RNA: mir-1994 microRNA precursor family
RNA sequence: UCUCAGGAAGAGCAUACUGUCUGCGUGAUUGCAAUGUACAUGAGACAGUGUGUCCUCCCUAAGAU
Numbered sequence: 001u002c003u004c005a006g007g008a009a010g011a012g013c014a015u016a017c018u019g020u021c022u023g024c025g026u027g028a029u030u031g032c033a034a035u036g037u038a039c040a041u042g043a044g045a046c047a048g049u050g051u052g053u054c055c056u057c058c059c060u061a062a063g064a065u
Stems, first nucleotide, its partner, number of pairs: 002063002006058003010054002013052003017048006025041003